[Rfam]
RNA sequence: GUGCUGCUGGAUGAAGUGAUUCGGCCCACGGGCUGUGGAAAGUCCCCGGGCCUUAACACAGAAAUGUGAAUACAGUAAUGUAUUUAGAUCUUAUAUGGGUCGGCUUGAGGCUGAGACACGUGUGGAGCUUGAUGAUAGCCUCACCCACAAGAUAAUUUGGCCGCAUCUUUACAGUAAUUCACUUAACCUCAAUGGUUAACAGAACGGGGCUUACAUCACAGCAGCA
Number, nucleotide and partner (000 for none) at each position: 001g000002u226003g225004c224005u223006g222007c221008u220009g219010g000011a000012u000013g000014a184015a183016g182017u181018g180019a179020u000021u000022c035023g034024g033025c032026c031027c000028a000029c000030g000031g026032g025033c024034u023035g022036u000037g000038g000039a000040a212041a211042g210043u000044c209045c208046c207047c206048g000049g000050g000051c000052c000053u000054u000055a000056a000057c068058a067059c066060a065061g000062a000063a000064a000065u060066g059067u058068g057069a084070a083071u082072a081073c080074a079075g000076u000077a000078a000079u074080g073081u072082a071083u070084u069085u000086a157087g156088a153089u152090c151091u150092u149093a000094u000095a000096u000097g146098g145099g144100u143101c000102g000103g000104c000105u000106u000107g000108a141109g140110g139111c138112u137113g136114a000115g000116a000117c000118a000119c000120g000121u000122g000123u000124g000125g000126a000127g000128c000129u000130u000131g000132a000133u000134g000135a000136u113137a112138g111139c110140c109141u108142c000143a100144c099145c098146c097147a000148c000149a092150a091151g090152a089153u088154a000155a000156u087157u086158u000159g000160g000161c000162c000163g000164c000165a000166u000167c000168u000169u000170u000171a000172c000173a000174g000175u000176a000177a000178u000179u019180c018181a017182c016183u015184u014185a000186a196187c195188c194189u000190c000191a000192a000193u000194g188195g187196u186197u000198a000199a000200c000201a000202g000203a000204a000205c000206g047207g046208g045209g044210c042211u041212u040213a000214c000215a000216u000217c000218a000219c009220a008221g007222c006223a005224g004225c003226a002
RNase MRP: a 226-nucleotide RNA sequence from Dendrobium nobile. About the family: RNase MRP is an enzymatically active ribonucleoprotein with two distinct roles in eukaryotes. In mitochondria it plays a direct role in the initiation of mitochondrial DNA replication. In the nucleus it is involved in precursor rRNA processing, where it cleaves the internal transcribed spacer 1 between 18S and 5.8S rRNAs. Despite distinct functions, RNase MRP has been shown to be evolutionarily related to RNase P. Like eukaryotic RNase P, RNase MRP is not catalytically active without associated protein subunits. It is annotated as a ribozyme. The source organism's lineage runs through Eukaryota, Tracheophyta, Euphyllophyta, Mesangiospermae and Dendrobium. The match comes from Rfam's covariance-model search (73 bits).